[Rfam]
Plastid-rpl16 group II-D1 intron: a 48-nucleotide RNA sequence from Dorcoceras hygrometricum.

RNA sequence: ACGAGCUUCGAGCCAAUAAAGACUAAGAAGGUUGACUGCAUAAAUUCA
Numbered sequence: 001a002c003g004a005g006c007u008u009c010g011a012g013c014c015a016a017u018a019a020a021g022a023c024u025a026a027g028a029a030g031g032u033u034g035a036c037u038g039c040a041u042a043a044a045u046u047c048a
Stems, first nucleotide, its partner, number of pairs: 007042001010039001011037002014034004
Dot-bracket structure: ......(..(((.((((.............)))).)).)..)......
The family's consensus secondary structure was predicted with LocARNA. Taxonomically the source falls in Dorcoceras (Eukaryota, Viridiplantae, Embryophyta, Gesneriaceae).